[Rfam]
Source information:
A member of the RNA family "mir-2944 microRNA precursor family" from Ignelater luminosus, 90 nucleotides long. Rfam links the family to the GO terms miRNA-mediated post-transcriptional gene silencing and RISC complex. The organism belongs to Ignelater, within Eukaryota.
RNA sequence: AAGGGUUUCUGGUUUGAAGGAACUCCUGGUGUGAUAUGCAGUUUUAUAAUCAUAUCACAGCCAGUAGUUACCUACGAAAUCGAAUCCCCA
Numbered sequence: 001a002a003g004g005g006u007u008u009c010u011g012g013u014u015u016g017a018a019g020g021a022a023c024u025c026c027u028g029g030u031g032u033g034a035u036a037u038g039c040a041g042u043u044u045u046a047u048a049a050u051c052a053u054a055u056c057a058c059a060g061c062c063a064g065u066a067g068u069u070a071c072c073u074a075c076g077a078a079a080u081c082g083a084a085u086c087c088c089c090a
Stems, first nucleotide, its partner, number of pairs: 003088003007084003011080001018073003021069004026064002028061001030059009
Dot-bracket structure: ..(((.(((.(......(((((((.(((.(((((((((............))))))))).).)).)))).)))......).))).)))..